[Rfam]
RNA sequence: GGUUCUGUGGCAGUGUGGUUAGCUGGUAGUUCAUGAUUUAAAACAACCACUAUCUACAUUGCCCCGAAAA
Dot-bracket structure: ..(((...((.(((((((.(((.((((.(((..........))).))))))).))))))).))..)))..

About this RNA
This 70-nucleotide sequence from Lottia gigantea belongs to the Rfam family "mir-34 microRNA precursor family". For this family Rfam cites "Numerous microRNPs in neuronal cells containing novel microRNAs" (Dostie et al., RNA, 2003). From the family's description: Human mir-34a was discovered computationally and later experimentally verified. Lineage of the source: Eukaryota > Protostomia > Gastropoda > Lottiidae > Lottia. Clan: mir-34 clan.